A member of the RNA family "Small nucleolar RNA SNORA79" from Monodelphis domestica, 145 nucleotides long. Taxonomically the source falls in Monodelphis (Eukaryota, Metazoa, Theria, Didelphidae). Its family is annotated with RNA processing and nucleolus in the Gene Ontology. Pairs were carried over by alignment from the consensus structure, which was predicted with RNAalifold. It is annotated as an H/ACA-box small nucleolar RNA. About the family: ACA65 (SNORA79) is a member of the H/ACA class of snoRNAs that guide the sites of modification of uridines to pseudouridines. This snoRNA was identified by computational screening and its expression in mouse experimentally verified by Northern blot and primer extension analysis.
RNA sequence: UGAUGACUGUUCCUCCUAUUGCCUAGAGCUCUGGCAUUAGGAUUUUAUGUCAUCAUACAUUAAAAUUUGACUUUUUUCACUCAGAGAAUAUUUGGGAUAAAUGGAUUAUCCUUUUCUUCUCUGAAAUUUGCGGAGUCAAACACUU
Numbered sequence: 001u002g003a004u005g006a007c008u009g010u011u012c013c014u015c016c017u018a019u020u021g022c023c024u025a026g027a028g029c030u031c032u033g034g035c036a037u038u039a040g041g042a043u044u045u046u047a048u049g050u051c052a053u054c055a056u057a058c059a060u061u062a063a064a065a066u067u068u069g070a071c072u073u074u075u076u077u078c079a080c081u082c083a084g085a086g087a088a089u090a091u092u093u094g095g096g097a098u099a100a101a102u103g104g105a106u107u108a109u110c111c112u113u114u115u116c117u118u119c120u121c122u123g124a125a126a127u128u129u130g131c132g133g134a135g136u137c138a139a140a141c142a143c144u145u
Stems, first nucleotide, its partner, number of pairs: 001055007014042005020036004069137006081124008090115001095111005
For this family Rfam cites "A computational screen for mammalian pseudouridylation guide H/ACA RNAs" (Schattner et al., RNA, 2006).